[Rfam]
Source information:
Shown here is a 269-nucleotide RNA sequence from Aspergillus mulundensis, a member of the family "Fungal signal recognition particle RNA". Gene Ontology terms of the family: signal recognition particle, plasma membrane targeting, signal recognition particle, endoplasmic reticulum targeting and SRP-dependent cotranslational protein targeting to membrane, signal sequence recognition. Clan: SRP clan. The organism belongs to Aspergillus subgen. Nidulantes, within Eukaryota. The literature on the family includes a 2002 paper in Curr Opin Struct Biol by Wild et al., "Towards the structure of the mammalian signal recognition particle". It scores 170 bits against the family's covariance model.

RNA sequence: UAUCUGUCAUGGAUAGUCGAGUGGGAGAUCAGCCGUUAGUCAGUGACCUUGCUAAAGGUCUUGGCCAGCGUUGACUGGUGCCCGGUACGAAUCCUGGGGUUGUCGAUUGUACUCGUGCGAGUAAUCCACGAAUGCUACACGGCACUAAGCAAUGGAAGUGACCCUUGAGGGAAGCAAUUCUGCAGAGACACUUCCACCCUGGGGUGGCGUCAUCGGAUUACACCGUCGCGUUACAGGGAAUCUGACUGUUUGGCUGGACAACUACUUUU
Numbered sequence: 001u002a003u004c005u006g007u008c009a010u011g012g013a014u015a016g017u018c019g020a021g022u023g024g025g026a027g028a029u030c031a032g033c034c035g036u037u038a039g040u041c042a043g044u045g046a047c048c049u050u051g052c053u054a055a056a057g058g059u060c061u062u063g064g065c066c067a068g069c070g071u072u073g074a075c076u077g078g079u080g081c082c083c084g085g086u087a088c089g090a091a092u093c094c095u096g097g098g099g100u101u102g103u104c105g106a107u108u109g110u111a112c113u114c115g116u117g118c119g120a121g122u123a124a125u126c127c128a129c130g131a132a133u134g135c136u137a138c139a140c141g142g143c144a145c146u147a148a149g150c151a152a153u154g155g156a157a158g159u160g161a162c163c164c165u166u167g168a169g170g171g172a173a174g175c176a177a178u179u180c181u182g183c184a185g186a187g188a189c190a191c192u193u194c195c196a197c198c199c200u201g202g203g204g205u206g207g208c209g210u211c212a213u214c215g216g217a218u219u220a221c222a223c224c225g226u227c228g229c230g231u232u233a234c235a236g237g238g239a240a241u242c243u244g245a246c247u248g249u250u251u252g253g254c255u256g257g258a259c260a261a262c263u264a265c266u267u268u269u
Stems, first nucleotide, its partner, number of pairs: 001015004019267006029257006038247006047238003057066003069230003073227003077224004082216005087210003091205009101144001103142003107139001108137002110134002113131005119126002145149001153196007164187003171180003